[Rfam]
RNA sequence: GCCGGGCUUAGCAACGCAAGCCUGUGACCCAAGUGGGGGCAUUACGGUGAUGGGACGUGGGCUCAGCCCAAAGAGCAGGGCACCGAUGGUGCUAAUUGCUGGCCCGCCCUAUCCAAGCAGGGAGUUGGUCCACGGGGUCCAGGCGAAGGCCCGGGUUCUGUGGGCUCUAGAGUAGAGGGUAACGCGUCAGGCUGGCUUCACAGAGCAGCGAAUACCUCUCGCUCUUGGCGGUGGAAGGAUUACGGGCCGGUGCAACUACGGCCCAAUAAAUGCUCCGAUUGUUGGCCCUAUCGGACCAUCACCUUU
Numbered sequence: 001g002c003c004g005g006g007c008u009u010a011g012c013a014a015c016g017c018a019a020g021c022c023u024g025u026g027a028c029c030c031a032a033g034u035g036g037g038g039g040c041a042u043u044a045c046g047g048u049g050a051u052g053g054g055a056c057g058u059g060g061g062c063u064c065a066g067c068c069c070a071a072a073g074a075g076c077a078g079g080g081c082a083c084c085g086a087u088g089g090u091g092c093u094a095a096u097u098g099c100u101g102g103c104c105c106g107c108c109c110u111a112u113c114c115a116a117g118c119a120g121g122g123a124g125u126u127g128g129u130c131c132a133c134g135g136g137g138u139c140c141a142g143g144c145g146a147a148g149g150c151c152c153g154g155g156u157u158c159u160g161u162g163g164g165c166u167c168u169a170g171a172g173u174a175g176a177g178g179g180u181a182a183c184g185c186g187u188c189a190g191g192c193u194g195g196c197u198u199c200a201c202a203g204a205g206c207a208g209c210g211a212a213u214a215c216c217u218c219u220c221g222c223u224c225u226u227g228g229c230g231g232u233g234g235a236a237g238g239a240u241u242a243c244g245g246g247c248c249g250g251u252g253c254a255a256c257u258a259c260g261g262c263c264c265a266a267u268a269a270a271u272g273c274u275c276c277g278a279u280u281g282u283u284g285g286c287c288c289u290a291u292c293g294g295a296c297c298a299u300c301a302c303c304u305u306u
Stems, first nucleotide, its partner, number of pairs: 001040003004023006028037003044305001046303008056293002058290003061286003065283002068281001070279001073276001074274004078264004085257001090254002093252002099250008108238002112235004117229002120226006127166014142151003167172001174219005185210003192203003